[Rfam]
RNA sequence: UGUCGAUGAUGAAAACAGCCAUAUCUGAGCAUCAAAAGAUCUCUUGGUGUCCCUAAUGCAUGAUCUCGAUAGUUCUAAGA
Number, nucleotide and partner (000 for none) at each position: 001u000002g000003u000004c000005g000006a000007u000008g000009a000010u000011g000012a000013a000014a000015a000016c000017a000018g000019c000020c000021a000022u000023a000024u000025c000026u000027g000028a000029g059030c058031a057032u056033c000034a000035a000036a000037a050038g000039a048040u047041c000042u000043c000044u000045u000046g000047g040048u039049g000050u037051c000052c000053c000054u000055a000056a032057u031058g030059c029060a000061u000062g000063a000064u000065c000066u000067c000068g000069a000070u000071a000072g000073u000074u000075c000076u000077a000078a000079g000080a000

Shown here is an 80-nucleotide RNA sequence from Cervus elaphus, a member of the family "Small nucleolar RNA U2-19". It is annotated as a C/D-box small nucleolar RNA. Rfam links the family to the GO terms RNA processing and nucleolus. Lineage of the source: Eukaryota > Vertebrata > Pecora > Cervinae > Cervus elaphus. The literature on the family includes a 2004 paper in Curr Biol by Tycowski et al., "Guide RNAs with 5' Caps and Novel Box C/D snoRNA-like Domains for Modification of snRNAs in Metazoa".